[Rfam]
RNA sequence: AUCGUUCAACUCUUUUUGAGUCGGAAGUAAGCAUUGUGCUGACGGAACGCAUG
Numbered sequence: 001a002u003c004g005u006u007c008a009a010c011u012c013u014u015u016u017u018g019a020g021u022c023g024g025a026a027g028u029a030a031g032c033a034u035u036g037u038g039c040u041g042a043c044g045g046a047a048c049g050c051a052u053g
Stems, first nucleotide, its partner, number of pairs: 003049005009021004024050001030040003